[Rfam]
RNA sequence: ACCGUCCUUAUCUUGGGGUUGCGCGGCCGCCCGAUGAACGCGUGGUGAGGGCGGCACUGCUAACGCCAGGCAACACGCGCCGCGCCCGCUGCGUGCGGGGCGCAAUUUUUGGAACC
Numbered sequence: 001a002c003c004g005u006c007c008u009u010a011u012c013u014u015g016g017g018g019u020u021g022c023g024c025g026g027c028c029g030c031c032c033g034a035u036g037a038a039c040g041c042g043u044g045g046u047g048a049g050g051g052c053g054g055c056a057c058u059g060c061u062a063a064c065g066c067c068a069g070g071c072a073a074c075a076c077g078c079g080c081c082g083c084g085c086c087c088g089c090u091g092c093g094u095g096c097g098g099g100g101c102g103c104a105a106u107u108u109u110u111g112g113a114a115c116c
Base pairs, nucleotide, nucleotide: 006018007017008016009015021060022059023058026055027054028053029052030051031050032049038046039045077103078102079101080100081099083097084096085095087093088092